The record is a 181-nucleotide RNA sequence, which matches "malK-I RNA" in Rfam. The sequence is in the family's curated seed alignment. Rfam classes the family as a cis-regulatory element.

[Rfam]
RNA sequence: CUGACUGCGUAUGCGGCUCUCCAUGAUCUCAGCCGUAUACAGCUUUAAAAAGGAGGAAAUGAACAUCCCCUGACUCGGGGUGCGGCAGUGUGGAGACCUGUCGCAAAGCGGUCCGUUCCCAAGGGGCGGCCGCGAGGGCACCUCAGGCGGAGGCCGGGUGUCCGGAGUCGGAAACAUGGCA
Numbered sequence: 001c002u003g004a005c006u007g008c009g010u011a012u013g014c015g016g017c018u019c020u021c022c023a024u025g026a027u028c029u030c031a032g033c034c035g036u037a038u039a040c041a042g043c044u045u046u047a048a049a050a051a052g053g054a055g056g057a058a059a060u061g062a063a064c065a066u067c068c069c070c071u072g073a074c075u076c077g078g079g080g081u082g083c084g085g086c087a088g089u090g091u092g093g094a095g096a097c098c099u100g101u102c103g104c105a106a107a108g109c110g111g112u113c114c115g116u117u118c119c120c121a122a123g124g125g126g127c128g129g130c131c132g133c134g135a136g137g138g139c140a141c142c143u144c145a146g147g148c149g150g151a152g153g154c155c156g157g158g159u160g161u162c163c164g165g166a167g168u169c170g171g172a173a174a175c176a177u178g179g180c181a
Stems, first nucleotide, its partner, number of pairs: 009040010067080004071170006081105008090097002108133006115127002136163008146155003